[Rfam]
RNA sequence: ACCUGCAUUCGAAAGUGAUUGUGGCCUUUCCUCUGUGGCCUGGUCAUUGAUACUGCAGGAAGAGAAUUCCUGAAAGCAUUUCCCGUGUUUGGGGGGGCUCGUUGCCAUCCUUUCCAGACCCUGAGCUCUUCAGACA
Number, nucleotide and partner (000 for none) at each position: 001a000002c059003c058004u057005g056006c055007a054008u000009u052010c000011g000012a000013a000014a048015g047016u046017g045018a044019u043020u042021g041022u000023g040024g039025c038026c037027u000028u000029u000030c000031c000032u000033c000034u000035g000036u000037g026038g025039c024040c023041u021042g020043g019044u018045c017046a016047u015048u014049g000050a000051u000052a009053c000054u007055g006056c005057a004058g003059g002060a000061a000062g000063a000064g000065a000066a000067u000068u000069c133070c000071u132072g131073a130074a129075a127076g126077c125078a000079u000080u000081u000082c000083c000084c000085g000086u000087g000088u118089u117090u116091g115092g114093g113094g112095g111096g110097g109098c000099u000100c000101g000102u000103u000104g000105c000106c000107a000108u000109c097110c096111u095112u094113u093114c092115c091116a090117g089118a088119c000120c000121c000122u000123g000124a000125g077126c076127u075128c000129u074130u073131c072132a071133g069134a000135c000136a000
Rfam assigns this 136-nucleotide RNA sequence from Anolis carolinensis to the family "Small nucleolar RNA SNORA71". Rfam's curators write: The members of this family belong to the H/ACA class of snoRNAs which bind a number of proteins (including dyskerin, Gar1p and Nop10p) to form snoRNP complexes. This class of snoRNAs are thought to guide the sites of modification of uridines to pseudouridines by forming direct base pairing interactions with substrate RNAs. This family includes U71 (SNORA71), ACA39 (SNORA39) and ACA60 (SNORA60). U71 and ACA60 are predicted to guide the pseudouridylation of U406 and U1004 in 18S rRNA respectively. There is currently no target RNA identified for ACA39. It is one of the family's seed sequences. Pairs were carried over by alignment from the consensus structure, which was predicted with PFOLD. For this family Rfam cites "The family of box ACA small nucleolar RNAs is defined by an evolutionarily conserved secondary structure and ubiquitous sequence elements essential for RNA accumulation" (Ganot et al., Genes Dev, 1997). Rfam 15.1 lists 1,805 matches to the family in 606 species. Gene Ontology terms of the family: RNA processing and nucleolus. By type it is an H/ACA-box small nucleolar RNA. The organism belongs to Anolis, within Eukaryota.